[Rfam]
RNA sequence: GGCUGAUCUGGAGGCAGUGAGUUAUCUCAUCUGAUUGUUCACAGCCAAUUACAGAUUCAACUCCUCCUUCUAUUCUUUCCCUACAUCUCAAUACUGCACUUAACUAGUCUUUA
Numbered sequence: 001g002g003c004u005g006a007u008c009u010g011g012a013g014g015c016a017g018u019g020a021g022u023u024a025u026c027u028c029a030u031c032u033g034a035u036u037g038u039u040c041a042c043a044g045c046c047a048a049u050u051a052c053a054g055a056u057u058c059a060a061c062u063c064c065u066c067c068u069u070c071u072a073u074u075c076u077u078u079c080c081c082u083a084c085a086u087c088u089c090a091a092u093a094c095u096g097c098a099c100u101u102a103a104c105u106a107g108u109c110u111u112u113a
Base pairs, nucleotide, nucleotide: 001109002108003107004106005105007103010101011100014097015096016092018090019089020088021087044074047071
Dot-bracket structure: (((((.(..((..(((.((((......................(..(.......................)..)............)))).)...))..)).).)))))....
The family of this 113-nucleotide sequence from Chlorocebus sabaeus is "Y RNA". It scores 40 bits against the family's covariance model. By type it is a non-coding RNA gene. The family's consensus secondary structure is taken from published work.